[Rfam]
RNA sequence: CAAUGUUUGGUAGAGGUGUAUGGCUGGAAAAAAGAAAAGGCUUCUCUGGUCAUUUGGAGAUGCUUUUCUUUCUUCCAUCCAUACAUCAUCUAACAAACUGAGU
Numbered sequence: 001c002a003a004u005g006u007u008u009g010g011u012a013g014a015g016g017u018g019u020a021u022g023g024c025u026g027g028a029a030a031a032a033a034g035a036a037a038a039g040g041c042u043u044c045u046c047u048g049g050u051c052a053u054u055u056g057g058a059g060a061u062g063c064u065u066u067u068c069u070u071u072c073u074u075c076c077a078u079c080c081a082u083a084c085a086u087c088a089u090c091u092a093a094c095a096a097a098c099u100g101a102g103u
Stems, first nucleotide, its partner, number of pairs: 005098005011092004015087009025077005031071001033070002036067002047057001049055001